[Rfam]
Annotation:
This 101-nucleotide RNA sequence from Olea europaea belongs to the Rfam family "Small nucleolar RNA R30/Z108". The family's consensus secondary structure was predicted with PFOLD.

RNA sequence: GAAAUUUACGAUGAGGAUAAAAAGCUCCCUCUUCUGAAUUCAAAUUUGAGGACGCUUUGCUGGCAGAAUCGAACCUAAAACUUAAAAUUGCCACUGAGUAA
Number, nucleotide and partner (000 for none) at each position: 001g000002a000003a000004a000005u000006u101007u100008a099009c098010g000011a000012u000013g000014a000015g000016g000017a000018u000019a000020a000021a000022a000023a000024g000025c000026u000027c000028c000029c000030u000031c000032u000033u000034c000035u000036g000037a000038a000039u000040u000041c000042a000043a000044a000045u000046u000047u000048g000049a000050g000051g000052a000053c000054g000055c000056u000057u000058u000059g000060c000061u000062g000063g000064c000065a000066g000067a000068a000069u000070c000071g000072a000073a000074c000075c000076u000077a000078a000079a000080a000081c000082u000083u000084a000085a000086a000087a000088u000089u000090g000091c000092c000093a000094c000095u000096g000097a000098g009099u008100a007101a006
Gene Ontology terms of the family: nucleolus and RNA processing. The literature on the family includes a 2002 paper in Curr Biol by Marker et al., "Experimental RNomics. Identification of 140 Candidates for Small Non-Messenger RNAs in the Plant Arabidopsis thaliana". snoR30 is a C/D box small nucleolar RNA which acts as a methylation guide for 18S ribosomal RNA in plants. NCBI's taxonomy places the organism under Eukaryota, Embryophyta, Euphyllophyta, Mesangiospermae, Olea europaea. Rfam classes the family as a C/D-box small nucleolar RNA.